[Rfam]
RNA sequence: AAGUUAUACGGGCAAACUUGACGAAAGUCAGGGACGCAAAGCCAGAUGGGGCUAAAAUCCAGAGAGAUUUUGGAUAAUGCCAGCCGGUUACAAGA
Numbered sequence: 001a002a003g004u005u006a007u008a009c010g011g012g013c014a015a016a017c018u019u020g021a022c023g024a025a026a027g028u029c030a031g032g033g034a035c036g037c038a039a040a041g042c043c044a045g046a047u048g049g050g051g052c053u054a055a056a057a058u059c060c061a062g063a064g065a066g067a068u069u070u071u072g073g074a075u076a077a078u079g080c081c082a083g084c085c086g087g088u089u090a091c092a093a094g095a
Base pairs, nucleotide, nucleotide: 012037013036017032018031019030020029021028022027040089041088042087043086048085049084050081051080052079057075058074059073060072061071062070063069
A member of the RNA family "c-di-GMP-I riboswitch aptamer" from [Ruminococcus] lactaris, 95 nucleotides long.